[Rfam]
RNA sequence: UGGACCCAGGAUGAGACCGUAUUUACGAACAAAGAAUCUCGAUUCAUCUGGUUCUGCACAAAAUACUGAGGUCCAUC
Numbered sequence: 001u002g003g004a005c006c007c008a009g010g011a012u013g014a015g016a017c018c019g020u021a022u023u024u025a026c027g028a029a030c031a032a033a034g035a036a037u038c039u040c041g042a043u044u045c046a047u048c049u050g051g052u053u054c055u056g057c058a059c060a061a062a063a064u065a066c067u068g069a070g071g072u073c074c075a076u077c
Base pairs, nucleotide, nucleotide: 001075002074003073004072005071006070